Purine riboswitch aptamer: a 100-nucleotide sequence from Anaerorhabdus furcosa. It scores 70 bits against the family's covariance model.
[Rfam]
RNA sequence: UCCAUGAACUCUUUUUGUUUUUGUAUAAAUGUGGUAAUUGGUCCACAAGUUUCUACCUCACUACCGUAAUGGUGAGACUACAAAACAGUUUUUUUGUUUU
Numbered sequence: 001u002c003c004a005u006g007a008a009c010u011c012u013u014u015u016u017g018u019u020u021u022u023g024u025a026u027a028a029a030u031g032u033g034g035u036a037a038u039u040g041g042u043c044c045a046c047a048a049g050u051u052u053c054u055a056c057c058u059c060a061c062u063a064c065c066g067u068a069a070u071g072g073u074g075a076g077a078c079u080a081c082a083a084a085a086c087a088g089u090u091u092u093u094u095u096g097u098u099u100u
Stems, first nucleotide, its partner, number of pairs: 019085007030047005057076007